[Rfam]
Source information: A member of the RNA family "FMN riboswitch aptamer (RFN element)" from Clostridium cylindrosporum, 117 nucleotides long. Lineage of the source: Bacteria > Bacillati > Eubacteriales > Clostridiaceae > Clostridium cylindrosporum. Pairs were carried over by alignment from the consensus structure, which is taken from published work. It scores 116 bits against the family's covariance model.
RNA sequence: UAUAAUCUUCAGGGCAGGGUGUGAUUCCCUACCGGCGGUAAAGCCCGCGAGCCUAAUAAGGCAUGAUUCGGUUAGAUUCCGAAGCCGACAGUAAAGUCUGGAUGAAAGAAGAUGGCA
Numbered sequence: 001u002a003u004a005a006u007c008u009u010c011a012g013g014g015c016a017g018g019g020u021g022u023g024a025u026u027c028c029c030u031a032c033c034g035g036c037g038g039u040a041a042a043g044c045c046c047g048c049g050a051g052c053c054u055a056a057u058a059a060g061g062c063a064u065g066a067u068u069c070g071g072u073u074a075g076a077u078u079c080c081g082a083a084g085c086c087g088a089c090a091g092u093a094a095a096g097u098c099u100g101g102a103u104g105a106a107a108g109a110a111g112a113u114g115g116c117a
Stems, first nucleotide, its partner, number of pairs: 003115001005113006017029003031097002033087002035048004043085002053061001067083005089100003